The record is a 229-nucleotide part of an RNA from Sphingomonas sp. OV641, which matches "Bacterial large subunit ribosomal RNA" in Rfam.
Rfam links the family to the GO terms ribosome and structural constituent of ribosome.
The match comes from Rfam's covariance-model search (2671 bits).
The family's consensus secondary structure is taken from published work.
[Rfam]
RNA sequence: GACUUAAUGUUUCAAGCAAGCUUAAGCCGAUAGGUGUAGGCGCAGCGAAAGCGAGUCUGAAUAGGGCGACAUAGUUUGAAGUAUUAGACCCGAAACCCGGCGAUCUAGGCAUGACCAGGAUGAAGGUGCGGUAACACGCACUGGAGGUCCGAACCGAUUAACGUUGAAAAGUUACCGGAUGAGUUGUGUUUAGGGGUGAAAGGCCAAUCAAGCCGGGAAAUAGCUGGUU
Numbered sequence: 001g002a003c004u005u006a007a008u009g010u011u012u013c014a015a016g017c018a019a020g021c022u023u024a025a026g027c028c029g030a031u032a033g034g035u036g037u038a039g040g041c042g043c044a045g046c047g048a049a050a051g052c053g054a055g056u057c058u059g060a061a062u063a064g065g066g067c068g069a070c071a072u073a074g075u076u077u078g079a080a081g082u083a084u085u086a087g088a089c090c091c092g093a094a095a096c097c098c099g100g101c102g103a104u105c106u107a108g109g110c111a112u113g114a115c116c117a118g119g120a121u122g123a124a125g126g127u128g129c130g131g132u133a134a135c136a137c138g139c140a141c142u143g144g145a146g147g148u149c150c151g152a153a154c155c156g157a158u159u160a161a162c163g164u165u166g167a168a169a170a171g172u173u174a175c176c177g178g179a180u181g182a183g184u185u186g187u188g189u190u191u192a193g194g195g196g197u198g199a200a201a202g203g204c205c206a207a208u209c210a211a212g213c214c215g216g217g218a219a220a221u222a223g224c225u226g227g228u229u
Stems, first nucleotide, its partner, number of pairs: 005086013020041004026035003045052002055067004089227002092224001096217006105193011116181001118150004125142006154178003159174004195205003